[Rfam]
RNA: epsC RNA
RNA sequence: CGGGGAUGUCUCCUAUCCGUUACGAUCGGAGGCACUCGGCCGUGCUGUGGGCAAAAUUGCUUUGCCUUAGAUACGAUUGUUAUCAAUGGUACAGCGUGAGGGCGGGUUAAAUGCCCA
Dot-bracket structure: [[[[..(((((((..]]]]........)))))))((((((.(((((..(((((((.....)))))))..((((.......))))...))))).)).))))...((((.....)))).